[Rfam]
RNA sequence: UGGCGCCCAACGUGGGGCUGGAUACGGAGGAUCCAGUGUGGGAAGAAGACGGCCCCCAAGGAAUGCAUUCCGCAACAAUUCUUCACCUUGGACACGCCACGGAAACCUGCCUCAGCUAAAACCAGAAGUAAGUAUCGGCGUCUGAUUAUGGGACAAGAAUUAAGCAGGCACAAUAUUUAUGUUCGGCAAUUGCAGGAUGGCUUACAGAUGCGAGGAGUAAAGGUUAAAAUAGAGGAUUUAUUUCGGUUCUUUGAAUUUAUUAAGGAAACCUGUCCUU
Numbered sequence: 001u002g003g004c005g006c007c008c009a010a011c012g013u014g015g016g017g018c019u020g021g022a023u024a025c026g027g028a029g030g031a032u033c034c035a036g037u038g039u040g041g042g043a044a045g046a047a048g049a050c051g052g053c054c055c056c057c058a059a060g061g062a063a064u065g066c067a068u069u070c071c072g073c074a075a076c077a078a079u080u081c082u083u084c085a086c087c088u089u090g091g092a093c094a095c096g097c098c099a100c101g102g103a104a105a106c107c108u109g110c111c112u113c114a115g116c117u118a119a120a121a122c123c124a125g126a127a128g129u130a131a132g133u134a135u136c137g138g139c140g141u142c143u144g145a146u147u148a149u150g151g152g153a154c155a156a157g158a159a160u161u162a163a164g165c166a167g168g169c170a171c172a173a174u175a176u177u178u179a180u181g182u183u184c185g186g187c188a189a190u191u192g193c194a195g196g197a198u199g200g201c202u203u204a205c206a207g208a209u210g211c212g213a214g215g216a217g218u219a220a221a222g223g224u225u226a227a228a229a230u231a232g233a234g235g236a237u238u239u240a241u242u243u244c245g246g247u248u249c250u251u252u253g254a255a256u257u258u259a260u261u262a263a264g265g266a267a268a269c270c271u272g273u274c275c276u277u
Base pairs, nucleotide, nucleotide: 006030007029012025013024014023037048039046085129086128088125089124101111102110135156137154141152142151143150144149161204162203163202165199166198211253212252213251214250215249216248217247218246221239222238223237224236225235262277263276264275265274266273
The family of this 277-nucleotide RNA from Nannospalax galili is "Mason-Pfizer monkey virus packaging signal".
Rfam describes the family as follows. This family represents a group of sequences that are related to the Mason-Pfizer monkey virus (MPMV) packaging signal.